[Rfam]
RNA sequence: UCAAGCCGUCGGAUGUCUUCCUCCUCCCAGACACCCGACGGUGAAUGCGGUGCUCCUCCUCCCGCGCCGUAUUCGAAAUCGAAGCCCGCUGCCACCUCCUCCCGGCAGCGGGCUUUUCU
Numbered sequence: 001u002c003a004a005g006c007c008g009u010c011g012g013a014u015g016u017c018u019u020c021c022u023c024c025u026c027c028c029a030g031a032c033a034c035c036c037g038a039c040g041g042u043g044a045a046u047g048c049g050g051u052g053c054u055c056c057u058c059c060u061c062c063c064g065c066g067c068c069g070u071a072u073u074c075g076a077a078a079u080c081g082a083a084g085c086c087c088g089c090u091g092c093c094a095c096c097u098c099c100u101c102c103c104g105g106c107a108g109c110g111g112g113c114u115u116u117u118c119u
Stems, first nucleotide, its partner, number of pairs: 007040003011036002014033004043074010083114011
Shown here is a 119-nucleotide sequence from Mesorhizobium sp. ORS 3428, a member of the family "Alphaproteobacterial ar14". Taxonomically the source falls in Mesorhizobium (Bacteria, Pseudomonadati, Pseudomonadota, Hyphomicrobiales).